RNA: SAM riboswitch aptamer (S box leader)
RNA sequence: CUCUUAUCCAGAGUGGUGGAGGGACAGGCCCAAUGAAACCCGGCAACCCGUCAGUAAUCUGACAUGGUGCCAACCUGCAGCAAGGUCCCUAUUUAAAGGAGAUCUUGGACGAUAAGAG
Numbered sequence: 001c002u003c004u005u006a007u008c009c010a011g012a013g014u015g016g017u018g019g020a021g022g023g024a025c026a027g028g029c030c031c032a033a034u035g036a037a038a039c040c041c042g043g044c045a046a047c048c049c050g051u052c053a054g055u056a057a058u059c060u061g062a063c064a065u066g067g068u069g070c071c072a073a074c075c076u077g078c079a080g081c082a083a084g085g086u087c088c089c090u091a092u093u094u095a096a097a098g099g100a101g102a103u104c105u106u107g108g109a110c111g112a113u114a115a116g117a118g
Base pairs, nucleotide, nucleotide: 001118002117003116004115005114006113007112008111013041015040016039017038021031022030023029025080027078028076042071043070044069045068047067048066050063051062052061053060081107082106083105084104085103086102